[Rfam]
Nucleotides: 087
Base pairs, nucleotide, nucleotide: 001086002085003084004083005082006081007080008079009078010077011076012075015072016071017070019068020067021066024063025062026061027060028059030057031056032055033054034053035052036051037050040047041046
Number, partner (000 for none) and nucleotide at each position: 001086c002085a003084u004083g005082u006081u007080a008079g009078c010077g011076c012075g013000a014000g015072u016071u017070g018000c019068u020067g021066a022000c023000a024063u025062g026061g027060c028059a029000a030057c031056a032055a033054a034053u035052c036051g037050c038000a039000c040047c041046c042000u043000c044000u045000a046041g047040g048000a049000c050037g051036c052035g053034a054033u055032u056031u057030g058000c059028u060027g061026c062025c063024a064000c065000g066021u067020c068019a069000a070017c071016a072015a073000a074000g075012c076011g077010c078009g079008c080007u081006g082005a083004u084003g085002u086001g087000g